Shown here is a 119-nucleotide sequence from Natronincola peptidivorans, a member of the family "Molybdenum/Tungsten riboswitch aptamer (Moco RNA motif)".
Taxonomically the source falls in Natronincola (Bacteria, Bacillati, Clostridia, Natronincolaceae).
The family's consensus secondary structure is taken from published work.
On this family, see Regulski et al., Mol Microbiol 2008: "in molybdenum cofactor and tungsten cofactor metabolism".
A search with the family's covariance model found it, with a score of 72 bits.
RNA sequence: UGUGUGCCAAAUUUUCGAGUGAAAUUAUCUAAGGCUAUUUAGCUAAGGUAAUUCACCAUUGGGUAAAUAAAGAAAUUUAUUUGCCUCCCACUUUGGAAAGGAAAUUUGUUUUUUUUAUA
Numbered sequence: 001u002g003u004g005u006g007c008c009a010a011a012u013u014u015u016c017g018a019g020u021g022a023a024a025u026u027a028u029c030u031a032a033g034g035c036u037a038u039u040u041a042g043c044u045a046a047g048g049u050a051a052u053u054c055a056c057c058a059u060u061g062g063g064u065a066a067a068u069a070a071a072g073a074a075a076u077u078u079a080u081u082u083g084c085c086u087c088c089c090a091c092u093u094u095g096g097a098a099a100g101g102a103a104a105u106u107u108g109u110u111u112u113u114u115u116u117a118u119a
Stems, first nucleotide, its partner, number of pairs: 004112001006110001011105006019056004024052006033044004061086011087096002